[Rfam]
RNA sequence: AUAAAAAAGUGGCUCGCGAAUAUUCGCGAGCCUAUGGUAUCUUGCACAACCAUUGUGUAAGAUACUAAAUGGGAGAGGAGAAACCGGAGGAAGAGCUUAUGGGGAAAUGUAAGUCUUCUCCGCGG
Numbered sequence: 001a002u003a004a005a006a007a008a009g010u011g012g013c014u015c016g017c018g019a020a021u022a023u024u025c026g027c028g029a030g031c032c033u034a035u036g037g038u039a040u041c042u043u044g045c046a047c048a049a050c051c052a053u054u055g056u057g058u059a060a061g062a063u064a065c066u067a068a069a070u071g072g073g074a075g076a077g078g079a080g081a082a083a084c085c086g087g088a089g090g091a092a093g094a095g096c097u098u099a100u101g102g103g104g105a106a107a108u109g110u111a112a113g114u115c116u117u118c119u120c121c122g123c124g125g
Stems, first nucleotide, its partner, number of pairs: 011032009033073001035071002043061001046058002085122004090118004095114005